The family of this 311-nucleotide sequence from Bison bison is "7SK RNA".
Pairs were carried over by alignment from the consensus structure, which is taken from published work.
Rfam describes the family as follows. 7SK was discovered as an abundant small nuclear RNA in the mid-70s but a possible function has only recently been suggested. Two independent studies have found that 7SK RNA binds the CDK9/cyclin T complex (known as elongation factor P-TEFb). P-TEFb activates transcription by phosphorylating the C-terminal domain of RNA polymerase II. This process is negatively regulated by the 7SK RNP. The secondary structure of 7SK RNA shown here was proposed by Wasserman and Steitz on the basis of chemical modification and enzymatic cleavage experiments.
RNA sequence: GGAUGUGAGGGCGAUCUGGUUGCGACAUCUGUCACCCCAUUGAUCGCCAGGGUUGAUUCGGCUGAUCUGGCUGGCUAGGCGGGUGUCCCCUUCCUCCCUCACCGCUCCAUGUGCGUCCCUCCCGAAGCUGCGCGCUCGGUCGAAGAGGACGACCAUCCCCGCUAGAGGAGGACCGGUCUUCGGUCAAGGGUAUAGGAGUAGCUGCGCUCCCCUGCUAGAACCUCCAAACAAGCUCUCAAAGCUACAUUUUCAUGAGGAAGAAUGGAGAAUGAUCUGGAUGCUUUUGUGGAGGAUGGUCUUCUGUACUGUAA
Numbered sequence: 001g002g003a004u005g006u007g008a009g010g011g012c013g014a015u016c017u018g019g020u021u022g023c024g025a026c027a028u029c030u031g032u033c034a035c036c037c038c039a040u041u042g043a044u045c046g047c048c049a050g051g052g053u054u055g056a057u058u059c060g061g062c063u064g065a066u067c068u069g070g071c072u073g074g075c076u077a078g079g080c081g082g083g084u085g086u087c088c089c090c091u092u093c094c095u096c097c098c099u100c101a102c103c104g105c106u107c108c109a110u111g112u113g114c115g116u117c118c119c120u121c122c123c124g125a126a127g128c129u130g131c132g133c134g135c136u137c138g139g140u141c142g143a144a145g146a147g148g149a150c151g152a153c154c155a156u157c158c159c160c161g162c163u164a165g166a167g168g169a170g171g172a173c174c175g176g177u178c179u180u181c182g183g184u185c186a187a188g189g190g191u192a193u194a195g196g197a198g199u200a201g202c203u204g205c206g207c208u209c210c211c212c213u214g215c216u217a218g219a220a221c222c223u224c225c226a227a228a229c230a231a232g233c234u235c236u237c238a239a240a241g242c243u244a245c246a247u248u249u250u251c252a253u254g255a256g257g258a259a260g261a262a263u264g265g266a267g268a269a270u271g272a273u274c275u276g277g278a279u280g281c282u283u284u285u286g287u288g289g290a291g292g293a294u295g296g297u298c299u300u301c302u303g304u305a306c307u308g309u310a311a
Stems, first nucleotide, its partner, number of pairs: 001108003005102007013093002018090002024087010035074002037070003042067004046062003116171002118168004122139004127135002141161002147158003201274001203272001208267001210265002213262001215260001222256003230249003